RNA: mir-128 microRNA precursor family
RNA sequence: GAUGGGUAGAAUGCGGGGCCGGGACGCUGUCUGAGAGGCCUAUGAUUCUCACAGUGAACCGGUCUCUUUUUCAGCCCCUCA
Numbered sequence: 001g002a003u004g005g006g007u008a009g010a011a012u013g014c015g016g017g018g019c020c021g022g023g024a025c026g027c028u029g030u031c032u033g034a035g036a037g038g039c040c041u042a043u044g045a046u047u048c049u050c051a052c053a054g055u056g057a058a059c060c061g062g063u064c065u066c067u068u069u070u071u072c073a074g075c076c077c078c079u080c081a
Base pairs, nucleotide, nucleotide: 006075007074009072010071015066016065017064018063019062020061021060025056026055027054028053029052030051033050034049035048